This 91-nucleotide sequence from Rhinopomastus cyanomelas belongs to the Rfam family "Retrovirus direct repeat 1 (dr1)". Rfam 15.1 lists 106 matches to the family in 14 species. The source organism's lineage runs through Eukaryota, Chordata, Euteleostomi, Archosauria and Rhinopomastus. The literature on the family includes a 1999 paper in J Virol by Aschoff et al., "Point mutations in the avian sarcoma/leukosis virus 3' untranslated region result in a packaging defect". A search with the family's covariance model found it, with a score of 72 bits. Gene Ontology term of the family: viral genome replication. From the family's description: This family represents the direct repeat 1 (dr1) element commonly found in the 3' UTR of Avian sarcoma, Rous sarcoma and Avian leukosis viruses (Alpharetroviruses and Avian type C retroviruses). dr1 is required for efficient viral replication and is thought to be involved in genomic RNA packaging although this may not be its only role. Pairs were carried over by alignment from the consensus structure, which is taken from published work. By type it is a cis-regulatory element.
[Rfam]
RNA sequence: UGUAACGGGGCAAGGCUUGACCAAGAGGACAUUGCUUGUAUAGGCGCAAUGCGGGGAUUUCGGGAUGUACGCGAUUAGGGUCCUCUUGAGA
Numbered sequence: 001u002g003u004a005a006c007g008g009g010g011c012a013a014g015g016c017u018u019g020a021c022c023a024a025g026a027g028g029a030c031a032u033u034g035c036u037u038g039u040a041u042a043g044g045c046g047c048a049a050u051g052c053g054g055g056g057a058u059u060u061c062g063g064g065a066u067g068u069a070c071g072c073g074a075u076u077a078g079g080g081u082c083c084u085c086u087u088g089a090g091a
Base pairs, nucleotide, nucleotide: 001012002011003010022088023087024086025085026084027083028082029081030080041077042076043075045073046072051068052067053066